[Rfam]
RNA sequence: ACAACCUGAAGCUGGCGCACGGCAACAUCGUGGUGUUCCGCUCGCUGCUGGGCAUUUCGUGGAUGUGGUUCUUCGGCGCGGUGUUCCUGUCGCAGUUCCCGGCCCUGGCGAAGAACGUGCUG
Numbered sequence: 001a002c003a004a005c006c007u008g009a010a011g012c013u014g015g016c017g018c019a020c021g022g023c024a025a026c027a028u029c030g031u032g033g034u035g036u037u038c039c040g041c042u043c044g045c046u047g048c049u050g051g052g053c054a055u056u057u058c059g060u061g062g063a064u065g066u067g068g069u070u071c072u073u074c075g076g077c078g079c080g081g082u083g084u085u086c087c088u089g090u091c092g093c094a095g096u097u098c099c100c101g102g103c104c105c106u107g108g109c110g111a112a113g114a115a116c117g118u119g120c121u122g
Base pairs, nucleotide, nucleotide: 010049011048012047014045017041018040021037022036023035024034026032051121052120053119054118055117057115060112065103067099068098071095072094074092075091076090077089078088080087081086
Background: The record is a 122-nucleotide RNA from Burkholderiales bacterium JOSHI_001, which matches "Burkholderia RNA 11" in Rfam. For this family Rfam cites "Experimental identification of small non-coding regulatory RNAs in the opportunistic human pathogen Burkholderia cenocepacia J2315" (Ramos et al., Genomics, 2013). Co-purified with Hfq, expression confirmed by Northern blot. Predicted target marZ. Overlaps coding sequence. Pairs were carried over by alignment from the consensus structure, which was predicted with RNAfold.